The family of this 213-nucleotide RNA from Chitinophaga agri is "Group II catalytic intron D1-D4-6". The source organism's lineage runs through Bacteria, Pseudomonadati, Chitinophagia, Chitinophagaceae and Chitinophaga. Rfam describes the family as follows. Group II introns are found in rRNA, tRNA and mRNA of organelles in fungi, plants and protists, and also in mRNA in bacteria. The match comes from Rfam's covariance-model search (94 bits). The family has 174 seed sequences and 1,617 matches in Rfam 15.1. The pairing is the family consensus, mapped onto this sequence. Gene Ontology term of the family: Group II intron splicing.
RNA sequence: CCAAUCCUGUCAGACAAGGUUUGGUGAACCAUCGGAAGCGCGUCUUGCGUAGUUGUCAGAGAUGAUGGCACGAAGCGUAGACAGCGACUGCUGAAAGUGUGCUAUUGAGCCUCGAAACGCUUCUGUAUAUUGAAGCUUUAGCCGUUCUAAGCUAAGGCAACAUCAAACCUGCGCAAUAGACAAGUGGGACGAUUCGACAGGGGUCCAAGAACA
Numbered sequence: 001c002c003a004a005u006c007c008u009g010u011c012a013g014a015c016a017a018g019g020u021u022u023g024g025u026g027a028a029c030c031a032u033c034g035g036a037a038g039c040g041c042g043u044c045u046u047g048c049g050u051a052g053u054u055g056u057c058a059g060a061g062a063u064g065a066u067g068g069c070a071c072g073a074a075g076c077g078u079a080g081a082c083a084g085c086g087a088c089u090g091c092u093g094a095a096a097g098u099g100u101g102c103u104a105u106u107g108a109g110c111c112u113c114g115a116a117a118c119g120c121u122u123c124u125g126u127a128u129a130u131u132g133a134a135g136c137u138u139u140a141g142c143c144g145u146u147c148u149a150a151g152c153u154a155a156g157g158c159a160a161c162a163u164c165a166a167a168c169c170u171g172c173g174c175a176a177u178a179g180a181c182a183a184g185u186g187g188g189a190c191g192a193u194u195c196g197a198c199a200g201g202g203g204u205c206c207a208a209g210a211a212c213a
Stems, first nucleotide, its partner, number of pairs: 010036002013033002018030004022183001024181002038085002042082004046077002048072003053068006106207001107205001109204005130197005135158003140153003163192002168188005